This 196-nucleotide sequence from Medicago truncatula belongs to the Rfam family "MIR2670 microRNA precursor family". It scores 150 bits against the family's covariance model.
RNA sequence: UCGGGGUAAAAUAGUGACUAGUCGACUUAGGGAAGUGAUCAACCCUUGGGAUAAAUUUAAAUCUGUUUUUUUUACUCCAUAAAUUUUUUACCGUGGGUAAAAUAAGAUUCUUGUUGGGGUAUAAAAAAAAAAACAGAUUUAAAUUUAGCCCAAGGGUUGGUGAUGUAUUUUUUUCAAGAAGGCUGCUCACUAUUAA
Numbered sequence: 001u002c003g004g005g006g007u008a009a010a011a012u013a014g015u016g017a018c019u020a021g022u023c024g025a026c027u028u029a030g031g032g033a034a035g036u037g038a039u040c041a042a043c044c045c046u047u048g049g050g051a052u053a054a055a056u057u058u059a060a061a062u063c064u065g066u067u068u069u070u071u072u073u074a075c076u077c078c079a080u081a082a083a084u085u086u087u088u089u090a091c092c093g094u095g096g097g098u099a100a101a102a103u104a105a106g107a108u109u110c111u112u113g114u115u116g117g118g119g120u121a122u123a124a125a126a127a128a129a130a131a132a133a134c135a136g137a138u139u140u141a142a143a144u145u146u147a148g149c150c151c152a153a154g155g156g157u158u159g160g161u162g163a164u165g166u167a168u169u170u171u172u173u174u175c176a177a178g179a180a181g182g183c184u185g186c187u188c189a190c191u192a193u194u195a196a
Base pairs, nucleotide, nucleotide: 010194011193012192013191014190015189016188017187019185020184021183022182023181026178027177028176030174031173032172033171034170035169038164039163040162041161042157043156044155046153047152048151049150050149052147053146054145055144057142058141059140060139061138062137063136064135065134066132067131068130069129070128071127072126073121074120075119076118077117078116079115084106085105086102087101088100089099090098091097092096